[Rfam]
RNA sequence: UCAUGAAAAUAGCAAACCACCUGAAAGGGUGGGACGCAAAGUCAGUAGUCUAAAGCCGCCACCUAAGUGGAAACGCUAUGAUCGUCCGACUGCCAUG
Numbered sequence: 001u002c003a004u005g006a007a008a009a010u011a012g013c014a015a016a017c018c019a020c021c022u023g024a025a026a027g028g029g030u031g032g033g034a035c036g037c038a039a040a041g042u043c044a045g046u047a048g049u050c051u052a053a054a055g056c057c058g059c060c061a062c063c064u065a066a067g068u069g070g071a072a073a074c075g076c077u078a079u080g081a082u083c084g085u086c087c088g089a090c091u092g093c094c095a096u097g
Stems, first nucleotide, its partner, number of pairs: 012037002017032006040091004045087001047085001048082003055076002